The family of this 108-nucleotide RNA sequence from Plutella xylostella is "mir-8517 microRNA precursor family".
RNA sequence: UUAUAGGAUGCUUUAGCUAUUGAACUAUUCUCUAACGCUCUGACAGAGAACAAUUUGAUCUUUGGCAGAGAGGGACAAAACAGUUCAAUAGCUAAAGCGCCCUAUAAC
Numbered sequence: 001u002u003a004u005a006g007g008a009u010g011c012u013u014u015a016g017c018u019a020u021u022g023a024a025c026u027a028u029u030c031u032c033u034a035a036c037g038c039u040c041u042g043a044c045a046g047a048g049a050a051c052a053a054u055u056u057g058a059u060c061u062u063u064g065g066c067a068g069a070g071a072g073g074g075a076c077a078a079a080a081c082a083g084u085u086c087a088a089u090a091g092c093u094a095a096a097g098c099g100c101c102c103u104a105u106a107a108c
Stems, first nucleotide, its partner, number of pairs: 001107006011097016028080001029069003033065001035063001049059001051057002
Gene Ontology terms of the family: miRNA-mediated post-transcriptional gene silencing and RISC complex. It scores 96 bits against the family's covariance model.